[Rfam]
RNA sequence: CUCCCUAUCCAACUCCUGGAGCCUCUGAGUUUGGUGGGGGACUCUGGGUUCUCUGUAAUGGGGUAGAACAGCGAGCGCUCUUCCCUCCCUGCUGGAUCCAGUUCCUGACGGGGCCUACAGAGACGCUGACAAU
Number, nucleotide and partner (000 for none) at each position: 001c000002u000003c063004c062005c061006u060007a059008u058009c055010c000011a000012a000013c000014u000015c047016c046017u000018g045019g044020a043021g042022c040023c039024u038025c037026u036027g000028a000029g000030u000031u000032u000033g000034g000035u000036g026037g025038g024039g023040g022041a000042c021043u020044c019045u018046g016047g015048g000049u000050u000051c000052u000053c000054u000055g009056u000057a000058a008059u007060g006061g005062g004063g003064u000065a000066g000067a000068a000069c000070a000071g000072c000073g000074a127075g126076c125077g000078c000079u122080c000081u000082u000083c000084c000085c000086u000087c113088c112089c111090u110091g109092c107093u000094g105095g104096a000097u000098c000099c000100a000101g000102u000103u000104c095105c094106u000107g092108a000109c091110g090111g089112g088113g087114c000115c000116u000117a000118c000119a000120g000121a000122g079123a000124c000125g076126c075127u074128g000129a000130c000131a000132a000133u000
RNA: Small nucleolar RNA SNORA49
Organism: Chanos chanos